The record is a 98-nucleotide RNA sequence from Streptococcus minor, which matches "PreQ1-II (pre queuosine) riboswitch aptamer" in Rfam. Pairs were carried over by alignment from the consensus structure, which is taken from published work. Taxonomically the source falls in Streptococcus (Bacteria, Bacillati, Bacilli, Streptococcaceae). A reference for the family is Kang et al. (2014), "Structural determinants for ligand capture by a class II preQ1 riboswitch", Proc Natl Acad Sci U S A. preQ1-II riboswitch was first reported for Weinberg et al. 2007 it was recognised in Streptococcaceae and Lactococcus families in 5' untranslated regions of genes of a membrane protein classified as COG4708 or DUF988.
RNA sequence: UAUGCUAUACUAGGCAACGUUGUGACAGCAACCCUUGGCACUUCCUCCCUUUAGCCAAGCAUAUUACAAGCGGUAUAGCCGCCAAAGGAGAAACAAUG
Numbered sequence: 001u002a003u004g005c006u007a008u009a010c011u012a013g014g015c016a017a018c019g020u021u022g023u024g025a026c027a028g029c030a031a032c033c034c035u036u037g038g039c040a041c042u043u044c045c046u047c048c049c050u051u052u053a054g055c056c057a058a059g060c061a062u063a064u065u066a067c068a069a070g071c072g073g074u075a076u077a078g079c080c081g082c083c084a085a086a087g088g089a090g091a092a093a094c095a096a097u098g
Stems, first nucleotide, its partner, number of pairs: 019032005034059006046090001048088004070082004